[Rfam]
RNA sequence: AUCUAUACUGAGUGGCCAGAUUAUUAUGAUCUCUGAACACAUAAUAAUCUGGUCACUCAAUAUAUAU
Numbered sequence: 001a002u003c004u005a006u007a008c009u010g011a012g013u014g015g016c017c018a019g020a021u022u023a024u025u026a027u028g029a030u031c032u033c034u035g036a037a038c039a040c041a042u043a044a045u046a047a048u049c050u051g052g053u054c055a056c057u058c059a060a061u062a063u064a065u066a067u
Base pairs, nucleotide, nucleotide: 004064005063006062007061009059010058011057012056013055014054015053016052017051019049020048021047022046023045024044025043026042027041028040
RNA: mir-9256 microRNA precursor family
Organism: Pipistrellus kuhlii